RNA sequence: CUAUGUGGAAGUUCGAUUAAAACCGCUGCCUCACGCAGCAACAUCGAACCAUCCUACGUCGUGUAGG
Dot-bracket structure: ..........(((((((.......(((((.....)))))...)))))))...(((((.....)))))
The family of this 67-nucleotide sequence from Pontibacillus yanchengensis is "Bacillaceae-1 RNA".
The source organism's lineage runs through Bacteria, Bacillati, Bacilli, Bacillaceae and Pontibacillus yanchengensis.
A search with the family's covariance model found it, with a score of 52 bits.